[Rfam]
RNA sequence: CCAAAGGCUCUUUUAAGAGCCACCCAUUUCAUCCUUAAAAGAUUG
Numbered sequence: 001c002c003a004a005a006g007g008c009u010c011u012u013u014u015a016a017g018a019g020c021c022a023c024c025c026a027u028u029u030c031a032u033c034c035u036u037a038a039a040a041g042a043u044u045g
Base pairs, nucleotide, nucleotide: 006021007020008019009018010017011016
Notes: The record is a 45-nucleotide RNA from Danio rerio, which matches "Histone 3' UTR stem-loop" in Rfam. By type it is a cis-regulatory element. About the family: The mRNAs of metazoan histone genes lack a poly-A tail. 3' end processing occurs at a site between a highly conserved stem-loop (modelled by this family) and a purine rich region around 20 nts downstream (the histone downstream element, or HDE). The stem-loop is bound by a 31 kDa stem-loop binding protein (SLBP - also termed the histone hairpin binding protein, or HBP). Together with U7 snRNA binding of the HDE, SLBP binding nucleate s the formation of the processing complex. The histone 3' UTR stem-loop is also involved in nucleocytoplasmic transport of the mRNA, and in stability regulation and translation efficiency in the cytoplasm.